[Rfam]
RNA sequence: GAUUUAUAUCAUACAAAAGCUCGUAUAAUAUCGGUAAUGUGGUCCGAAAGUUUCUACCUGCUAGCCAUAAAAUAGCAGACUACGAGGUAAUGUGUUUUGAAA
Numbered sequence: 001g002a003u004u005u006a007u008a009u010c011a012u013a014c015a016a017a018a019g020c021u022c023g024u025a026u027a028a029u030a031u032c033g034g035u036a037a038u039g040u041g042g043u044c045c046g047a048a049a050g051u052u053u054c055u056a057c058c059u060g061c062u063a064g065c066c067a068u069a070a071a072a073u074a075g076c077a078g079a080c081u082a083c084g085a086g087g088u089a090a091u092g093u094g095u096u097u098u099g100a101a102a
Base pairs, nucleotide, nucleotide: 018088020086021085022084023083024082025081029049031047032046033045034044058078059077060076061075062074063073